[Rfam]
RNA sequence: AGAACGGCCCUUUUAAGGGCCAACUAAAUUUUGUCAAAAGUUAUCU
Numbered sequence: 001a002g003a004a005c006g007g008c009c010c011u012u013u014u015a016a017g018g019g020c021c022a023a024c025u026a027a028a029u030u031u032u033g034u035c036a037a038a039a040g041u042u043a044u045c046u
Stems, first nucleotide, its partner, number of pairs: 006021006

This 46-nucleotide RNA sequence from Octopus sinensis belongs to the Rfam family "Histone 3' UTR stem-loop". It scores 34 bits against the family's covariance model. The base pairs follow the family's consensus structure, which is taken from published work. The family's RNA type in Rfam is cis-regulatory element. NCBI's taxonomy places the organism under Eukaryota, Metazoa, Protostomia, Mollusca, Octopus.